This 92-nucleotide sequence from Gammaproteobacteria bacterium LSUCC0112 belongs to the Rfam family "t44 RNA".
[Rfam]
RNA sequence: GUAAUCUCCAACUAACGUCACACAUACAUCGACACAUGCACCCUGGGUGCUGCAGAAAUGCAGUUGGGACAUGGGAUGUAUGGAGGCCUAAC
Dot-bracket structure: ......................((((((((....((((..(((.....(((((......))))).))).)))).))))))))..........

The literature on the family includes a 2002 paper in Nucleic Acids Res by Tjaden et al., "Transcriptome analysis of Escherichia coli using high-density oligonucleotide probe arrays".
Rfam describes the family as follows. This family consists of a number of bacterial RNA genes of between 135 and 170 bases in length.
It is annotated as a small RNA.